mir-14 microRNA precursor family: a 63-nucleotide sequence from Orchesella cincta. The literature on the family includes a 2009 paper in BMC Genomics by Li et al., "Direct sequencing and expression analysis of a large number of miRNAs in Aedes aegypti and a multi-species survey of novel mosquito miRNAs".
RNA sequence: CAUAGGGGUGAGAAAAGGACUUUGGCGUUAAUUAAUACCGUCAGUCUUUUUCUCUCUCCUAUA
Numbered sequence: 001c002a003u004a005g006g007g008g009u010g011a012g013a014a015a016a017g018g019a020c021u022u023u024g025g026c027g028u029u030a031a032u033u034a035a036u037a038c039c040g041u042c043a044g045u046c047u048u049u050u051u052c053u054c055u056c057u058c059c060u061a062u063a
Base pairs, nucleotide, nucleotide: 002062003061004060005059006058007057008056010054011053012052013051015049016048017047018046019045020044021043025041026040027039029037